Description
This 101-nucleotide sequence from Amborella trichopoda belongs to the Rfam family "Plastid-psbA-1 3UTR RNA". The family's RNA type in Rfam is cis-regulatory element. On this family, see Richter et al., Plant Commun 2023: "Retrograde signaling in plants: A critical review focusing on the GUN pathway and beyond". Plastid psbA-1 is a non-coding RNA (ncRNA) present in plastids. It was identified in inverted repeat sequences in the 3 prime untranslate region (3UTR) of photosystem II quinone-binding protein (psbA).

RNA sequence: UUGAAGCUCCAUCUACAAAUGGACAAGACUUCGUUCUUAGUGUAUACGAGUUGUUGAAGGAACAAUACUGAAUGUCUUGUUACAUUUGGUAUUGUUCUGUU
Dot-bracket structure: .......(((((......)))))...................................((((((((((.(((.((......)).))).))))))))))...